[Rfam]
RNA: Small nucleolar RNA SNORA72
Organism: Otolemur garnettii
RNA sequence: CUGCAAAUGUUCUUGCUAUUCUGAUUUUGUAAUAAUCAGGACAGACUAAACAUUCACUAUACAAAAAACAUAAAACAUUUACUAUAUAAAAUACAUGUGUCUGUAGACCUAAUUCUUUCCCUGGGUUUGGUUUUAUAAAUGCUGGUGCUAAGC
Numbered sequence: 001c002u003g004c005a006a007a008u009g010u011u012c013u014u015g016c017u018a019u020u021c022u023g024a025u026u027u028u029g030u031a032a033u034a035a036u037c038a039g040g041a042c043a044g045a046c047u048a049a050a051c052a053u054u055c056a057c058u059a060u061a062c063a064a065a066a067a068a069c070a071u072a073a074a075a076c077a078u079u080u081a082c083u084a085u086a087u088a089a090a091a092u093a094c095a096u097g098u099g100u101c102u103g104u105a106g107a108c109c110u111a112a113u114u115c116u117u118u119c120c121c122u123g124g125g126u127u128u129g130g131u132u133u134u135a136u137a138a139a140u141g142c143u144g145g146u147g148c149u150a151a152g153c
Stems, first nucleotide, its partner, number of pairs: 003057001016044002019041008081146004094141001104129008